[Rfam]
The family of this 140-nucleotide RNA sequence from Pseudoxanthomonas spadix is "radC RNA". Pairs were carried over by alignment from the consensus structure, which is taken from published work. The match comes from Rfam's covariance-model search (84 bits). By type it is a cis-regulatory element. The source organism's lineage runs through Bacteria, Pseudomonadati, Pseudomonadota, Lysobacteraceae and Pseudoxanthomonas spadix.
RNA sequence: UGCCAGAUACGUUCCGCUGAUGUUGUCAGCGUCAACCAGCAACUUUCGGUCUUCCAGGUUGCGCACGGCUUGCCCGUGUGACCGAACCAGUUCGCAUCGCAUCCUCGCGCGAACGACCACCGGCCUGCUGGUGGUGAUGC
Number, nucleotide and partner (000 for none) at each position: 001u000002g000003c000004c000005a000006g000007a000008u035009a000010c000011g033012u000013u031014c000015c000016g030017c029018u028019g027020a026021u025022g000023u000024u000025g021026u020027c019028a018029g017030c016031g013032u000033c011034a000035a008036c000037c000038a000039g062040c061041a060042a059043c058044u057045u000046u000047c000048g083049g082050u081051c080052u000053u000054c000055c000056a000057g044058g043059u042060u041061g040062c039063g079064c078065a077066c076067g075068g074069c000070u000071u000072g000073c000074c068075c067076g066077u065078g064079u063080g051081a050082c049083c048084g000085a000086a000087c000088c000089a000090g000091u000092u000093c000094g000095c000096a000097u000098c000099g000100c000101a000102u000103c000104c000105u000106c000107g000108c000109g140110c139111g138112a000113a000114c000115g000116a135117c134118c133119a132120c131121c130122g129123g128124c000125c000126u000127g000128c123129u122130g121131g120132u119133g118134g117135u116136g000137a000138u111139g110140c109